[Rfam]
This 87-nucleotide RNA sequence from Enterovirus alphacoxsackie belongs to the Rfam family "Enterovirus 5' cloverleaf cis-acting replication element".
Rfam's curators put it in the seed alignment.
By type it is a cis-regulatory element.
About the family: This family represents a cis-regulatory element found at the 5' end of Enterovirus genomes.
Taxonomically the source falls in Enterovirus A (Viruses, Riboviria, Orthornavirae, Picornavirales).
RNA sequence: UAAAACAGCUGUGGGUUGCACCCACCCACAGGGCCCACUGGGCGCUAGCACUCUGGUACUGAGGUACCUUUGUGCGCCUGUUUUUAC
Numbered sequence: 001u002a003a004a005a006c007a008g009c010u011g012u013g014g015g016u017u018g019c020a021c022c023c024a025c026c027c028a029c030a031g032g033g034c035c036c037a038c039u040g041g042g043c044g045c046u047a048g049c050a051c052u053c054u055g056g057u058a059c060u061g062a063g064g065u066a067c068c069u070u071u072g073u074g075c076g077c078c079u080g081u082u083u084u085u086a087c
Base pairs, nucleotide, nucleotide: 002084003083004082005081006080007079009032010030011029012028013027014026015025016024033043034042035041044077045076048075049074050073051072055068056067057066058065
Dot-bracket structure: .((((((.((((((((.......))))))).)(((.....)))((..((((...((((......))))...)))))).))))))...